[Rfam]
RNA sequence: UUGAAGAAUUUGAAGACCUCAACUUGCAGACUUGAAAAAUUUGAAGACUUCAACAUGUAUACUUGAAGAAUUUAAAGACCUCAACU
Number, nucleotide and partner (000 for none) at each position: 001u084002u083003g082004a081005a000006g079007a000008a000009u076010u075011u074012g073013a072014a071015g000016a000017c068018c000019u066020c065021a064022a000023c000024u000025u059026g058027c057028a056029g000030a000031c000032u053033u052034g051035a050036a049037a000038a000039a000040u000041u000042u000043g000044a000045a000046g000047a000048c000049u036050u035051c034052a033053a032054c000055a000056u028057g027058u026059a025060u000061a000062c000063u000064u021065g020066a019067a000068g017069a000070a000071u014072u013073u012074a011075a010076a009077g000078a000079c006080c000081u004082c003083a002084a001085c000086u000